[Rfam]
RNA sequence: CAAGGCACUCGCGGGAGCCCGGACGCACCGGGCUGAGAGGGAGGCUGGCGGCCUCCGACCGUACGAACCUGAUCCGGGUCAUGCCGGCGAAGGGAGGGGCUGGACGCCCAUG
Numbered sequence: 001c002a003a004g005g006c007a008c009u010c011g012c013g014g015g016a017g018c019c020c021g022g023a024c025g026c027a028c029c030g031g032g033c034u035g036a037g038a039g040g041g042a043g044g045c046u047g048g049c050g051g052c053c054u055c056c057g058a059c060c061g062u063a064c065g066a067a068c069c070u071g072a073u074c075c076g077g078g079u080c081a082u083g084c085c086g087g088c089g090a091a092g093g094g095a096g097g098g099g100c101u102g103g104a105c106g107c108c109c110a111u112g
Stems, first nucleotide, its partner, number of pairs: 008098003011062004017033005040055002043052001068093003074087004
Shown here is a 112-nucleotide sequence from Streptomyces coelicolor, a member of the family "TPP riboswitch aptamer (THI element)".
The sequence is in the family's curated seed alignment.
The base pairs follow the family's consensus structure, which is taken from published work.